SAH (S-adenosyl-L-homocysteine) riboswitch aptamer: a 76-nucleotide sequence from Rhizobacter sp. AJA081-3. It scores 67 bits against the family's covariance model. Taxonomically the source falls in Rhizobacter (Bacteria, Betaproteobacteria, Burkholderiales, Sphaerotilaceae).
RNA sequence: CGUUCCGAGGAGCGUUGCAAGGCCUGCACUCAGGCCCCAGGCUCGGAAGCCUUUCAUGCAACCGCGCUCACCCGCA
Numbered sequence: 001c002g003u004u005c006c007g008a009g010g011a012g013c014g015u016u017g018c019a020a021g022g023c024c025u026g027c028a029c030u031c032a033g034g035c036c037c038c039a040g041g042c043u044c045g046g047a048a049g050c051c052u053u054u055c056a057u058g059c060a061a062c063c064g065c066g067c068u069c070a071c072c073c074g075c076a
Base pairs, nucleotide, nucleotide: 003048004047005046006045007044008043021036022035023034024033025032026031